Shown here is an 85-nucleotide sequence from Domibacillus iocasae, a member of the family "c-di-GMP-I riboswitch aptamer". The family's consensus secondary structure is taken from published work.
[Rfam]
RNA sequence: UCGAGAUAAUGGCCAACUAGUCGAAAGACUAGGACGCAAAGAUGCAAAUCUAAGGUCAAGCGACUAGGAUGGCUGAGUUACCUCA
Numbered sequence: 001u002c003g004a005g006a007u008a009a010u011g012g013c014c015a016a017c018u019a020g021u022c023g024a025a026a027g028a029c030u031a032g033g034a035c036g037c038a039a040a041g042a043u044g045c046a047a048a049u050c051u052a053a054g055g056u057c058a059a060g061c062g063a064c065u066a067g068g069a070u071g072g073c074u075g076a077g078u079u080a081c082c083u084c085a
Stems, first nucleotide, its partner, number of pairs: 012037002017032006040079002043076001045075002048070003055064003